[Rfam]
RNA: MIR9555 microRNA precursor family
Organism: Brassica carinata
RNA sequence: UUAUAUAUGCGUAUGUAAUUACGGGUUUUUAAUUUUACGGGAAACCCAACCGAAAGUUUCUUAAUUAAGAAACUUUCGGUUGGGUUUCCCGUAAAAUUAAGAACCCGUAAUUACAUACGCAUAUAUAA
Numbered sequence: 001u002u003a004u005a006u007a008u009g010c011g012u013a014u015g016u017a018a019u020u021a022c023g024g025g026u027u028u029u030u031a032a033u034u035u036u037a038c039g040g041g042a043a044a045c046c047c048a049a050c051c052g053a054a055a056g057u058u059u060c061u062u063a064a065u066u067a068a069g070a071a072a073c074u075u076u077c078g079g080u081u082g083g084g085u086u087u088c089c090c091g092u093a094a095a096a097u098u099a100a101g102a103a104c105c106c107g108u109a110a111u112u113a114c115a116u117a118c119g120c121a122u123a124u125a126u127a128a
Stems, first nucleotide, its partner, number of pairs: 001128040069088007